[Rfam]
Annotation
mraW RNA: a 112-nucleotide sequence from Chelonoidis abingdonii.
RNA sequence: CUGCAGUAUAGACAUUUGGGCUCAGGCUGGAAAUUGGGUUCUGGGACUCUUCCCCCUCAGGGUCCCAGAACCCAGGCUCCAGCAUGAGCCCAAACAUCUCUAUUGCAAUUUU
Numbered sequence: 001c002u003g004c005a006g007u008a009u010a011g012a013c014a015u016u017u018g019g020g021c022u023c024a025g026g027c028u029g030g031a032a033a034u035u036g037g038g039u040u041c042u043g044g045g046a047c048u049c050u051u052c053c054c055c056c057u058c059a060g061g062g063u064c065c066c067a068g069a070a071c072c073c074a075g076g077c078u079c080c081a082g083c084a085u086g087a088g089c090c091c092a093a094a095c096a097u098c099u100c101u102a103u104u105g106c107a108a109u110u111u112u
Stems, first nucleotide, its partner, number of pairs: 010099003015094002018091002021088004026083006034075017